RNA sequence: UGGAGGACUGAGAAAGUAAGACAGUUAAAUUUAUACUGUAUCUUACUGGUUAUAGCCUCCAAAAGUGUACCAGCGCAAUGGCAAUUCAUGCUCCCCUCCAAACAUGAGGGACAGCAGUACUGUAUUUGCACAUAAGGC
Dot-bracket structure: .(((((........(((((.(((((.........))))).)..))))........)))))....................((.....(((.....((.(...(......)...).))...)))....)).........
Numbered sequence: 001u002g003g004a005g006g007a008c009u010g011a012g013a014a015a016g017u018a019a020g021a022c023a024g025u026u027a028a029a030u031u032u033a034u035a036c037u038g039u040a041u042c043u044u045a046c047u048g049g050u051u052a053u054a055g056c057c058u059c060c061a062a063a064a065g066u067g068u069a070c071c072a073g074c075g076c077a078a079u080g081g082c083a084a085u086u087c088a089u090g091c092u093c094c095c096c097u098c099c100a101a102a103c104a105u106g107a108g109g110g111a112c113a114g115c116a117g118u119a120c121u122g123u124a125u126u127u128g129c130a131c132a133u134a135a136g137g138c
Stems, first nucleotide, its partner, number of pairs: 002060005015047004019041001021039005081129002088123003096117002099114001103110001